[Rfam]
RNA sequence: GCCGGAGGAAUGAUGACAUAAAAGGCCGAAUUACAGCGCCUCUCCUGGCAGGUUUCUCUCUCUGUGGGAGGCGUGAUGACAAAACUCCUUGAAGCGAACUAACCACUGACCUCGGC
Numbered sequence: 001g002c003c004g005g006a007g008g009a010a011u012g013a014u015g016a017c018a019u020a021a022a023a024g025g026c027c028g029a030a031u032u033a034c035a036g037c038g039c040c041u042c043u044c045c046u047g048g049c050a051g052g053u054u055u056c057u058c059u060c061u062c063u064g065u066g067g068g069a070g071g072c073g074u075g076a077u078g079a080c081a082a083a084a085c086u087c088c089u090u091g092a093a094g095c096g097a098a099c100u101a102a103c104c105a106c107u108g109a110c111c112u113c114g115g116c
Base pairs, nucleotide, nucleotide: 001116002115003114004113006112007111008110015106025034038100041097042096043094046091047090048089051074054070055069056068057067058066075088078085

Rfam assigns this 116-nucleotide RNA from Hymenochirus boettgeri to the family "Small nucleolar RNA SNORD89". Rfam's curators write: snoRNA HBII-289 belongs to the family of C/D snoRNAs. It is the human orthologue of the mouse MBII-289 and has no identified RNA target. Gene Ontology terms of the family: RNA processing and nucleolus. The match comes from Rfam's covariance-model search (52 bits). Rfam classes the family as a C/D-box small nucleolar RNA. A reference for the family is Huttenhofer et al. (2001), "RNomics: an experimental approach that identifies 201 candidates for novel, small, non-messenger RNAs in mouse", EMBO J.